[Rfam]
RNA: Alphaproteobacterial ar14
Organism: Falsigemmobacter intermedius
RNA sequence: AGCUUCGGCAGCGGCCCUCUCCUCCUCCCUGGGGUUGCUGCCACCGCGAAAGGCCCCUCCUCCUCCCGGGCCGAUCGUCAACGGCGGCAGUCCCCUCCUCCUCCCUGGGACUGCCGCCUUUU
Numbered sequence: 001a002g003c004u005u006c007g008g009c010a011g012c013g014g015c016c017c018u019c020u021c022c023u024c025c026u027c028c029c030u031g032g033g034g035u036u037g038c039u040g041c042c043a044c045c046g047c048g049a050a051a052g053g054c055c056c057c058u059c060c061u062c063c064u065c066c067c068g069g070g071c072c073g074a075u076c077g078u079c080a081a082c083g084g085c086g087g088c089a090g091u092c093c094c095c096u097c098c099u100c101c102u103c104c105c106u107g108g109g110a111c112u113g114c115c116g117c118c119u120u121u122u
Base pairs, nucleotide, nucleotide: 007042008041009040011038012037013036014035015034016033017032047077048076049075052072053071054070055069084117085116086115087114088113089112090111091110092109093108094107